Background:
MIR5298 microRNA precursor family: a 91-nucleotide RNA from Medicago truncatula.
RNA sequence: UUAGGUUUUCUUCAUUUUCUUCUGGAAUUUUUCUGGGAUUCUUGUUGUUGAAGGUUGAUGAAGAUGAUAUGAAGAUGAAAAUGAGGACCAA
Numbered sequence: 001u002u003a004g005g006u007u008u009u010c011u012u013c014a015u016u017u018u019c020u021u022c023u024g025g026a027a028u029u030u031u032u033c034u035g036g037g038a039u040u041c042u043u044g045u046u047g048u049u050g051a052a053g054g055u056u057g058a059u060g061a062a063g064a065u066g067a068u069a070u071g072a073a074g075a076u077g078a079a080a081a082u083g084a085g086g087a088c089c090a091a
Stems, first nucleotide, its partner, number of pairs: 006084002009081001011079009037056004042051002
It scores 77 bits against the family's covariance model.
Pairs were carried over by alignment from the consensus structure, which was predicted with RNAalifold.